This 115-nucleotide RNA from Frankineae bacterium MT45 belongs to the Rfam family "SAM (S-adenosyl methionine) riboswitch aptamer". NCBI's taxonomy places the organism under Bacteria, Bacillati, Actinomycetota, Actinomycetes, Frankiales. It scores 99 bits against the family's covariance model. From the family's description: SAM-IV is a mRNA element that regulates gene expression via direct sensing of S-adenosylmethionine (SAM or AdoMet). SAM-IV riboswitches share conserved nucleotide positions with the previously described SAM-I riboswitches sequence analysis and molecular recognition experiments suggest that SAM-I and SAM-IV riboswitches share similar ligand binding sites, but have different scaffolds. The family's consensus secondary structure is taken from published work. The literature on the family includes a 2008 paper in RNA by Weinberg et al., "The aptamer core of SAM-IV riboswitches mimics the ligand-binding site of SAM-I riboswitches".
[Rfam]
RNA sequence: GGUUAUGAGCGUCAGCGACAAGCCCUGGCUUGCUGACCGGCAACCCUCCUCCACCGGCGGGGUGCUCCAGGUGACGACCAGGCGGGACCGAAGACGGCCUCCGCAAGCGUGGGCG
Number, nucleotide and partner (000 for none) at each position: 001g079002g078003u077004u076005a000006u000007g000008a000009g038010c000011g037012u036013c035014a034015g033016c032017g000018a000019c000020a000021a030022g029023c000024c000025c000026u000027g000028g000029c022030u021031u000032g016033c015034u014035g013036a012037c011038c009039g066040g065041c064042a000043a000044c062045c061046c060047u000048c057049c056050u000051c000052c000053a000054c000055c000056g049057g048058c000059g000060g046061g045062g044063u000064g041065c040066u039067c000068c000069a000070g000071g000072u000073g000074a000075c000076g004077a003078c002079c001080a000081g000082g104083c103084g102085g101086g099087a000088c097089c096090g095091a000092a000093g000094a000095c090096g089097g088098c000099c086100u000101c085102c084103g083104c082105a000106a000107g000108c000109g000110u000111g000112g000113g000114c000115g000